This 139-nucleotide sequence from Pseudescherichia vulneris belongs to the Rfam family "sraL Hfq binding RNA". Pairs were carried over by alignment from the consensus structure, which was predicted with RNAalifold.
RNA sequence: GUCAGCACAAACCGGAACCUCAACAACGCGUUCGAGCGAGGGGUGUUGAUGUCGGGGGAAACCCUCCUGUAAAAGAGCGGGAUAGAGCGAAAGACAAAGACCGGAAAUAACUAAAGCGCCCUUGUGGCGCUUUAGUUUU
Number, nucleotide and partner (000 for none) at each position: 001g000002u049003c048004a047005g046006c045007a044008c043009a000010a000011a000012c000013c000014g000015g021016a000017a000018c000019c000020u000021c015022a000023a000024c000025a000026a000027c000028g000029c000030g000031u040032u039033c038034g000035a000036g000037c000038g033039a032040g031041g000042g000043g008044u007045g006046u005047u004048g003049a002050u000051g095052u094053c093054g000055g064056g063057g062058g000059a000060a000061a000062c057063c056064c055065u082066c081067c080068u079069g078070u077071a000072a000073a000074a000075g000076a000077g070078c069079g068080g067081g066082a065083u000084a000085g000086a000087g000088c000089g000090a000091a000092a000093g053094a052095c051096a000097a000098a000099g000100a000101c000102c000103g000104g000105a000106a000107a000108u000109a138110a137111c135112u134113a133114a132115a131116g130117c129118g128119c127120c126121c000122u000123u000124g000125u000126g120127g119128c118129g117130c116131u115132u114133u113134a112135g111136u000137u110138u109139u000
Its family is annotated with negative regulation of gene expression in the Gene Ontology. The organism belongs to Pseudescherichia vulneris, within Bacteria. A reference for the family is Argaman et al. (2001), "Novel small RNA-encoding genes in the intergenic regions of Escherichia coli", Curr Biol. Rfam's curators write: The SraL RNA ('sra' for small RNA), discovered in E. coli, and later in Salmonella Tiphimurium. It is expressed only in stationary phase.